[Rfam]
RNA sequence: CCCUGUAUCGAAAGUGACGUGGCUUCUGUGUAGCCAGGUCAUCGAGGGUACAGGAAGAACAACGCGAGAGCUUUUUCCCUGUGUUUGGAGGAUUCUCUGUUCCUUCUGAACCCUGGUUCUCUCAGACA
Numbered sequence: 001c002c003c004u005g006u007a008u009c010g011a012a013a014g015u016g017a018c019g020u021g022g023c024u025u026c027u028g029u030g031u032a033g034c035c036a037g038g039u040c041a042u043c044g045a046g047g048g049u050a051c052a053g054g055a056a057g058a059a060c061a062a063c064g065c066g067a068g069a070g071c072u073u074u075u076u077c078c079c080u081g082u083g084u085u086u087g088g089a090g091g092a093u094u095c096u097c098u099g100u101u102c103c104u105u106c107u108g109a110a111c112c113c114u115g116g117u118u119c120u121c122u123c124a125g126a127c128a
Stems, first nucleotide, its partner, number of pairs: 002054008014042005020036005063125001066123005083111005088105005
RNA: Small nucleolar RNA SNORA71
Organism: Betta splendens